[Rfam]
RNA: UnaL2 LINE 3' element
Organism: Astyanax mexicanus
RNA sequence: GUACUUCACUAUUGUAAGUCGCUUUGGACAAAAGCGUCUGCCAAAUGCAAUGUA
Numbered sequence: 001g002u003a004c005u006u007c008a009c010u011a012u013u014g015u016a017a018g019u020c021g022c023u024u025u026g027g028a029c030a031a032a033a034g035c036g037u038c039u040g041c042c043a044a045a046u047g048c049a050a051u052g053u054a
Base pairs, nucleotide, nucleotide: 013043014041015040016039020036021035022034023033024032025031